[Rfam]
RNA sequence: ACAAUCCGGCACGGGUAAAGGCUAACCACCAGCCCGGGACUGAACCGGACGUAUUGCGAGGUAACGAGUAAUGCGAAGCUUCGGUAAGGGCAGUUUGUCAGCCGUAACGCAAGUGAAGGUAUCGAGCCCCGAAAUAAUCCUUAUUUCACUGGGUCAAGGGUUUCAUUUCCUGGAAACCAGUAUCGAUGCGCACGUUAAAGGUGAGUGCGUAAUCGACGUGGCGGGGUCUAAGUCCG
Numbered sequence: 001a002c003a004a005u006c007c008g009g010c011a012c013g014g015g016u017a018a019a020g021g022c023u024a025a026c027c028a029c030c031a032g033c034c035c036g037g038g039a040c041u042g043a044a045c046c047g048g049a050c051g052u053a054u055u056g057c058g059a060g061g062u063a064a065c066g067a068g069u070a071a072u073g074c075g076a077a078g079c080u081u082c083g084g085u086a087a088g089g090g091c092a093g094u095u096u097g098u099c100a101g102c103c104g105u106a107a108c109g110c111a112a113g114u115g116a117a118g119g120u121a122u123c124g125a126g127c128c129c130c131g132a133a134a135u136a137a138u139c140c141u142u143a144u145u146u147c148a149c150u151g152g153g154u155c156a157a158g159g160g161u162u163u164c165a166u167u168u169c170c171u172g173g174a175a176a177c178c179a180g181u182a183u184c185g186a187u188g189c190g191c192a193c194g195u196u197a198a199a200g201g202u203g204a205g206u207g208c209g210u211a212a213u214c215g216a217c218g219u220g221g222c223g224g225g226g227u228c229u230a231a232g233u234c235c236g
Stems, first nucleotide, its partner, number of pairs: 012036005020030002023204001025202002040088002044085004048080001050075008060065001124228001126227006146221004151217001152178003158171003183216004187211007
Annotation
The family of this 236-nucleotide RNA sequence from Sedimentisphaera salicampi is "Group II catalytic intron D1-D4-6". It scores 118 bits against the family's covariance model.